Purine riboswitch aptamer: a 102-nucleotide sequence from Bacillus sp. OK048.
The family has 133 seed sequences and 4,097 matches in Rfam 15.1.
RNA sequence: UAAAUUUUAUAAGGUUUCACUCAUAUAAUCGCAGGGAUAUGGCCUGCAAGUUUCUACCGGAUUGCCGUUAACAAUCCGACUAUGAGUGGGUAAUGCUUACGG
Numbered sequence: 001u002a003a004a005u006u007u008u009a010u011a012a013g014g015u016u017u018c019a020c021u022c023a024u025a026u027a028a029u030c031g032c033a034g035g036g037a038u039a040u041g042g043c044c045u046g047c048a049a050g051u052u053u054c055u056a057c058c059g060g061a062u063u064g065c066c067g068u069u070a071a072c073a074a075u076c077c078g079a080c081u082a083u084g085a086g087u088g089g090g091u092a093a094u095g096c097u098u099a100c101g102g
Stems, first nucleotide, its partner, number of pairs: 018088008029049001031047005058078007